The family of this 173-nucleotide RNA from Lachnospiraceae bacterium OF09-33XD is "M-box riboswitch aptamer (ykoK leader)". Rfam's curators write: M-box riboswitch, also know as ykoK leader is described as a metaloregulatory RNA that sense divalent metals and function as a genetic control element of genes related to divalent metal transport in bacteria. It was first reported upstream of the B.subtilis ykoK gene and genes with related functions in other bacteria.

[Rfam]
RNA sequence: GAAUACUUUCGGUAGGUGAGGCUACCACAGAGAUAGGAAUUUCCUAAGAUUGCUGCCGCGAAUUUGUGGAGACACAAAGAGAUGGUUAGCAGGCUAUGUCGUCCAAAAAGGCAUAACCUAAUGCAAUUUAUAUAUGCUCUGUGAAGCUAAAGCUUGAACGACUGGACGGUCAU
Dot-bracket structure: .....(.((((.[.(((..(((...(((((((................(((((.((((......((((....))))......)))).....((.(..(((........])))..).))....))))).........)))))))..)))...)))....)....))).).....
Numbered sequence: 001g002a003a004u005a006c007u008u009u010c011g012g013u014a015g016g017u018g019a020g021g022c023u024a025c026c027a028c029a030g031a032g033a034u035a036g037g038a039a040u041u042u043c044c045u046a047a048g049a050u051u052g053c054u055g056c057c058g059c060g061a062a063u064u065u066g067u068g069g070a071g072a073c074a075c076a077a078a079g080a081g082a083u084g085g086u087u088a089g090c091a092g093g094c095u096a097u098g099u100c101g102u103c104c105a106a107a108a109a110g111g112c113a114u115a116a117c118c119u120a121a122u123g124c125a126a127u128u129u130a131u132a133u134a135u136g137c138u139c140u141g142u143g144a145a146g147c148u149a150a151a152g153c154u155u156g157a158a159c160g161a162c163u164g165g166a167c168g169g170u171c172a173u
Stems, first nucleotide, its partner, number of pairs: 006168001008166003011159001013109001015154003020148003026143007049127005055086004065076004092118002095115001098112003
The source organism's lineage runs through Bacteria, Bacillota, Clostridia, Lachnospirales and Lachnospiraceae.